[Rfam]
RNA sequence: AAAUAAAGGAGCAAUAGCAACACUCUUGCUAGAACAAGAAAGUGGUUAUUGCUCCUUUAU
Numbered sequence: 001a002a003a004u005a006a007a008g009g010a011g012c013a014a015u016a017g018c019a020a021c022a023c024u025c026u027u028g029c030u031a032g033a034a035c036a037a038g039a040a041a042g043u044g045g046u047u048a049u050u051g052c053u054c055c056u057u058u059a060u
Base pairs, nucleotide, nucleotide: 005058006057007056008055009054010053011052012051013050014049015048016047020043021042024039025038026037027036028035
Plastid-psbA-4 3UTR RNA: a 60-nucleotide RNA from Gossypium trilobum. Lineage of the source: Eukaryota > Streptophytina > Magnoliopsida > malvids > Gossypium. The sequence is in the family's curated seed alignment.